[Rfam]
RNA sequence: CAACUCUGGAAAGUAGCAGGCAUGUCCUCUGGCAUGCCUUGCUCACCGACGGUGCAAGCGGCGCCCUGCGAAAGCACGGCUGCGCGGAAACUCUCAGGUCCAAUACAGAGCGGGGAGG
Numbered sequence: 001c002a003a004c005u006c007u008g009g010a011a012a013g014u015a016g017c018a019g020g021c022a023u024g025u026c027c028u029c030u031g032g033c034a035u036g037c038c039u040u041g042c043u044c045a046c047c048g049a050c051g052g053u054g055c056a057a058g059c060g061g062c063g064c065c066c067u068g069c070g071a072a073a074g075c076a077c078g079g080c081u082g083c084g085c086g087g088a089a090a091c092u093c094u095c096a097g098g099u100c101c102a103a104u105a106c107a108g109a110g111c112g113g114g115g116a117g118g
Stems, first nucleotide, its partner, number of pairs: 001113001004110005015043006045099003048095002052093001054091001
Shown here is a 118-nucleotide RNA sequence, a member of the family "Glycine riboswitch aptamer".